[Rfam]
RNA sequence: CCGCCUGUCAUCUGGGGAGUAGCCAGCCGCAACCGGCGGGCCUGCACGUCAACAUACUUGGCCGAGAGGCUAUGGCGGCAGGGAACGGGACACCGUUCAGGCGAGACCAAUGACAUUGCCCCUCUGCCCGGCCGGGCGGGAGGCGCAAUGUCGUUGUUCUGUUGCUCGCCCGGCCC
Numbered sequence: 001c002c003g004c005c006u007g008u009c010a011u012c013u014g015g016g017g018a019g020u021a022g023c024c025a026g027c028c029g030c031a032a033c034c035g036g037c038g039g040g041c042c043u044g045c046a047c048g049u050c051a052a053c054a055u056a057c058u059u060g061g062c063c064g065a066g067a068g069g070c071u072a073u074g075g076c077g078g079c080a081g082g083g084a085a086c087g088g089g090a091c092a093c094c095g096u097u098c099a100g101g102c103g104a105g106a107c108c109a110a111u112g113a114c115a116u117u118g119c120c121c122c123u124c125u126g127c128c129c130g131g132c133c134g135g136g137c138g139g140g141a142g143g144c145g146c147a148a149u150g151u152c153g154u155u156g157u158u159c160u161g162u163u164g165c166u167c168g169c170c171c172g173g174c175c176c
Base pairs, nucleotide, nucleotide: 027039028038029037041082042081043080044079045078047077048076049075050074051073059072060071061070062069063068087176088175089174
Manganese Mn2+ riboswitch aptamer (yybP-ykoY): a 176-nucleotide RNA sequence from Caenibius tardaugens. It scores 57 bits against the family's covariance model. The source organism's lineage runs through Bacteria, Alphaproteobacteria, Sphingomonadales, Caenibius and Caenibius tardaugens.